[Rfam]
RNA sequence: GCCAAGAUGGUCGAGUGGUCUAAGACGUCAGACUUAAGAUUUCCGGUUACGAAAUUUGUAGGUUAUCUGAUCCUCUAAGGAGGGCGUGGGUUCAAACCCCACUCUUGGCA
Numbered sequence: 001g002c003c004a005a006g007a008u009g010g011u012c013g014a015g016u017g018g019u020c021u022a023a024g025a026c027g028u029c030a031g032a033c034u035u036a037a038g039a040u041u042u043c044c045g046g047u048u049a050c051g052a053a054a055u056u057u058g059u060a061g062g063u064u065a066u067c068u069g070a071u072c073c074u075c076u077a078a079g080g081a082g083g084g085c086g087u088g089g090g091u092u093c094a095a096a097c098c099c100c101a102c103u104c105u106u107g108g109c110a
Base pairs, nucleotide, nucleotide: 001109002108003107004106005105006104007103010026011025012024028070029069030068031067032066086102087101088100089099090098